RNA sequence: UUAUGCCUGGCUCCUUGUAUGCCACAAGCAGAAGCUUAAUCUAUUUCUUGAUUGGCUACUAUGGGUGGCGUACAGGGAGCCAAGCAUAC
Numbered sequence: 001u002u003a004u005g006c007c008u009g010g011c012u013c014c015u016u017g018u019a020u021g022c023c024a025c026a027a028g029c030a031g032a033a034g035c036u037u038a039a040u041c042u043a044u045u046u047c048u049u050g051a052u053u054g055g056c057u058a059c060u061a062u063g064g065g066u067g068g069c070g071u072a073c074a075g076g077g078a079g080c081c082a083a084g085c086a087u088a089c
Stems, first nucleotide, its partner, number of pairs: 002088005008082007016074009028062001